[Rfam]
RNA sequence: AAUUAAGUGCAUGUGGUGGAUGCCUUGGCAGUCAGAGGCGAUGAAAGACGUGAUAGCCUGCGAAAAGCUCCGGGGAGGCGGCAAAUAUCCUUUGAUCCGGAGAUUUCUGAAUGGGGGAACCCACCUACUUUAAGGUAGGUAUUGCAACAUGAAUACAUAGUGUUGCAAGGCGAACGAGGGGAAGUGAAACAUCUCAGUACCCUUAGGAAAAGAAAUCAAUUGAGAUUCCCUCAGUAGCGGCGAGCGAACGGGGAUCAGCCCAUUAAGUUAUGUGUGUUUUAGUGGAACGCUCUGGGAAGUGCGAACGUAGAGGGUGAUAUUCCCGUACACGAAAGGGCACACAUAAUGAUGACGAGUAGGGCGAGGCACGUGAAACCUUGUCUGAAUAUGGGGGGACCAUCCUCCAAGGCUAAAUACUCCUGACUGACCGAUAGUGAACCAGUACCGUGAGGGAAAGGCGAAAAGAACCCCUGUGAGGGGAGUGAAAUAGAUCCUGAAACCGCAUGCAUACAAG
Numbered sequence: 001a002a003u004u005a006a007g008u009g010c011a012u013g014u015g016g017u018g019g020a021u022g023c024c025u026u027g028g029c030a031g032u033c034a035g036a037g038g039c040g041a042u043g044a045a046a047g048a049c050g051u052g053a054u055a056g057c058c059u060g061c062g063a064a065a066a067g068c069u070c071c072g073g074g075g076a077g078g079c080g081g082c083a084a085a086u087a088u089c090c091u092u093u094g095a096u097c098c099g100g101a102g103a104u105u106u107c108u109g110a111a112u113g114g115g116g117g118a119a120c121c122c123a124c125c126u127a128c129u130u131u132a133a134g135g136u137a138g139g140u141a142u143u144g145c146a147a148c149a150u151g152a153a154u155a156c157a158u159a160g161u162g163u164u165g166c167a168a169g170g171c172g173a174a175c176g177a178g179g180g181g182a183a184g185u186g187a188a189a190c191a192u193c194u195c196a197g198u199a200c201c202c203u204u205a206g207g208a209a210a211a212g213a214a215a216u217c218a219a220u221u222g223a224g225a226u227u228c229c230c231u232c233a234g235u236a237g238c239g240g241c242g243a244g245c246g247a248a249c250g251g252g253g254a255u256c257a258g259c260c261c262a263u264u265a266a267g268u269u270a271u272g273u274g275u276g277u278u279u280u281a282g283u284g285g286a287a288c289g290c291u292c293u294g295g296g297a298a299g300u301g302c303g304a305a306c307g308u309a310g311a312g313g314g315u316g317a318u319a320u321u322c323c324c325g326u327a328c329a330c331g332a333a334a335g336g337g338c339a340c341a342c343a344u345a346a347u348g349a350u351g352a353c354g355a356g357u358a359g360g361g362c363g364a365g366g367c368a369c370g371u372g373a374a375a376c377c378u379u380g381u382c383u384g385a386a387u388a389u390g391g392g393g394g395g396a397c398c399a400u401c402c403u404c405c406a407a408g409g410c411u412a413a414a415u416a417c418u419c420c421u422g423a424c425u426g427a428c429c430g431a432u433a434g435u436g437a438a439c440c441a442g443u444a445c446c447g448u449g450a451g452g453g454a455a456a457g458g459c460g461a462a463a464a465g466a467a468c469c470c471c472u473g474u475g476a477g478g479g480g481a482g483u484g485a486a487a488u489a490g491a492u493c494c495u496g497a498a499a500c501c502g503c504a505u506g507c508a509u510a511c512a513a514g
Stems, first nucleotide, its partner, number of pairs: 007509010022494001023458002027429002029426007036418002038171002046108003049062003068102007077090002113122003123140007142168009175206001176204005186193002216223002226414001227254005237245002257411004268346013282330003288303003292299001306310001312324003359383008390405005445452002468480004
Shown here is a 514-nucleotide part of an RNA from Acinetobacter pittii, a member of the family "Bacterial large subunit ribosomal RNA". Taxonomically the source falls in Acinetobacter pittii (Bacteria, Pseudomonadati, Gammaproteobacteria, Moraxellales). The family's consensus secondary structure is taken from published work.